A member of the RNA family "mir-1179 microRNA precursor family" from Vicugna pacos, 82 nucleotides long.
The base pairs follow the family's consensus structure, which was predicted with RNAalifold.
Its family is annotated with miRNA-mediated post-transcriptional gene silencing and RISC complex in the Gene Ontology.
The match comes from Rfam's covariance-model search (90 bits).
RNA sequence: CAAAAAAGGAAGAUGCAUCCUUUCAUUGGUUGGUAUGUAUUGCCUUGUUAACCAAUCAGAGGAUGCCAUUUAUUCUUUUCUG
Numbered sequence: 001c002a003a004a005a006a007a008g009g010a011a012g013a014u015g016c017a018u019c020c021u022u023u024c025a026u027u028g029g030u031u032g033g034u035a036u037g038u039a040u041u042g043c044c045u046u047g048u049u050a051a052c053c054a055a056u057c058a059g060a061g062g063a064u065g066c067c068a069u070u071u072a073u074u075c076u077u078u079u080c081u082g
Stems, first nucleotide, its partner, number of pairs: 004079007012071002015066009025056011